The family of this 78-nucleotide RNA sequence from Pteropus alecto is "mir-450 microRNA precursor family". The organism belongs to Pteropus, within Eukaryota. Rfam links the family to the GO terms RISC complex and miRNA-mediated post-transcriptional gene silencing. A search with the family's covariance model found it, with a score of 92 bits. A reference for the family is Ahn et al. (2010), "MicroRNA transcriptome in the newborn mouse ovaries determined by massive parallel sequencing", Mol Hum Reprod.

[Rfam]
RNA sequence: GCUAAACUAUUUUUGCGAUGUGUUCCUAAUAUGCUAUAUAAAUAUAUUGGGAGCAUUUUGCAUGCAUGGUUCAGUAUC
Numbered sequence: 001g002c003u004a005a006a007c008u009a010u011u012u013u014u015g016c017g018a019u020g021u022g023u024u025c026c027u028a029a030u031a032u033g034c035u036a037u038a039u040a041a042a043u044a045u046a047u048u049g050g051g052a053g054c055a056u057u058u059u060g061c062a063u064g065c066a067u068g069g070u071u072c073a074g075u076a077u078c
Stems, first nucleotide, its partner, number of pairs: 005071006014062005020056014